Shown here is a 119-nucleotide RNA sequence from Bacillus solimangrovi, a member of the family "epsC RNA".
Rfam classes the family as a cis-regulatory element.
RNA sequence: AGGUGAUGUCUCCUUACCUGUAUCAAUGGAGGCACUCGGCUAUGUUGUGGGUAAAAAGAAAUGCAACCUUAGACACGUAAGUUGUCAAUAACAUGGUGUGAGGUAGGGUUAGAUGCCCU
Numbered sequence: 001a002g003g004u005g006a007u008g009u010c011u012c013c014u015u016a017c018c019u020g021u022a023u024c025a026a027u028g029g030a031g032g033c034a035c036u037c038g039g040c041u042a043u044g045u046u047g048u049g050g051g052u053a054a055a056a057a058g059a060a061a062u063g064c065a066a067c068c069u070u071a072g073a074c075a076c077g078u079a080a081g082u083u084g085u086c087a088a089u090a091a092c093a094u095g096g097u098g099u100g101a102g103g104u105a106g107g108g109u110u111a112g113a114u115g116c117c118c119u
Stems, first nucleotide, its partner, number of pairs: 001019004007034007035102004039097008049069004056062001072086004105119005
The organism belongs to Bacillus, within Bacteria.